RNA sequence: CUAGGGUACGGGGACAUGUACCCGCAGACGCCCGGCGGGAAGUUCGUCGGGUCCGUGUGCGCUGUCGCCGGCAUCCUGACUGUCGCGCUGCCGGUCCCUGUCAUCGUGACAAAC
Numbered sequence: 001c002u003a004g005g006g007u008a009c010g011g012g013g014a015c016a017u018g019u020a021c022c023c024g025c026a027g028a029c030g031c032c033c034g035g036c037g038g039g040a041a042g043u044u045c046g047u048c049g050g051g052u053c054c055g056u057g058u059g060c061g062c063u064g065u066c067g068c069c070g071g072c073a074u075c076c077u078g079a080c081u082g083u084c085g086c087g088c089u090g091c092c093g094g095u096c097c098c099u100g101u102c103a104u105c106g107u108g109a110c111a112a113a114c
Base pairs, nucleotide, nucleotide: 002113005110007108008107009106010105011104013102014101015100016099018097020095021094037077038076039075040074049063050062
Dot-bracket structure: .(..(.(((((.((((.(.((...............((((........((...........))..........))))................)).).)))).))))).)..).